Metazoan signal recognition particle RNA: a 298-nucleotide RNA sequence from Tachuris rubrigastra.
Taxonomically the source falls in Tachuris (Eukaryota, Opisthokonta, Metazoa, Sauria).
By type it is a non-coding RNA gene.
RNA sequence: GCACGGUGGCACGCACCUGUAGUCCCAGCUGCCAGGGAGGCUGAGCCCGACAGAUCACUUGAGCCCAGGAGUUCUGGGCUGCAGGGCGCUGUGCCCAGCACGUGUCCAAGCUAAGGCUGCCAUCAAUAUAGUGACCCGCGGGGAGCUGUGGGACACCAGGUUGACUAAGGACAGGUGAACCAGCCCAGGUUGGAGAUGGAGCAGGUUCAAGCUCCGUCAGUGGUGAUCAGUAGAGGGACUGUGCCUGUAAACAGGCCCUGCAGCGUAGCCUGGGUAACACAGAGACAUGUGAGCUCGC
Numbered sequence: 001g002c003a004c005g006g007u008g009g010c011a012c013g014c015a016c017c018u019g020u021a022g023u024c025c026c027a028g029c030u031g032c033c034a035g036g037g038a039g040g041c042u043g044a045g046c047c048c049g050a051c052a053g054a055u056c057a058c059u060u061g062a063g064c065c066c067a068g069g070a071g072u073u074c075u076g077g078g079c080u081g082c083a084g085g086g087c088g089c090u091g092u093g094c095c096c097a098g099c100a101c102g103u104g105u106c107c108a109a110g111c112u113a114a115g116g117c118u119g120c121c122a123u124c125a126a127u128a129u130a131g132u133g134a135c136c137c138g139c140g141g142g143g144a145g146c147u148g149u150g151g152g153a154c155a156c157c158a159g160g161u162u163g164a165c166u167a168a169g170g171a172c173a174g175g176u177g178a179a180c181c182a183g184c185c186c187a188g189g190u191u192g193g194a195g196a197u198g199g200a201g202c203a204g205g206u207u208c209a210a211g212c213u214c215c216g217u218c219a220g221u222g223g224u225g226a227u228c229a230g231u232a233g234a235g236g237g238a239c240u241g242u243g244c245c246u247g248u249a250a251a252c253a254g255g256c257c258c259u260g261c262a263g264c265g266u267a268g269c270c271u272g273g274g275u276a277a278c279a280c281a282g283a284g285a286c287a288u289g290u291g292a293g294c295u296c297g298c
Stems, first nucleotide, its partner, number of pairs: 001016001004013002023038003043296004048291002055285002058282002063275007074268003078264009089254004098248003102244004106237002111233003115228002118225006124163004129158001131156003135152007165169001173217001174214001175212002182207004190199003